M23 RNA: a 53-nucleotide RNA sequence. The family's consensus secondary structure is taken from published work. Rfam classes the family as a small RNA.

[Rfam]
RNA sequence: CGGUAUGCCGCCUGCCGGAAAGGGCGGCGGCGGGGCUGUCCCGCCCGGAAAGG
Numbered sequence: 001c002g003g004u005a006u007g008c009c010g011c012c013u014g015c016c017g018g019a020a021a022g023g024g025c026g027g028c029g030g031c032g033g034g035g036c037u038g039u040c041c042c043g044c045c046c047g048g049a050a051a052g053g
Stems, first nucleotide, its partner, number of pairs: 007028006029045006
Rfam's curators put it in the seed alignment.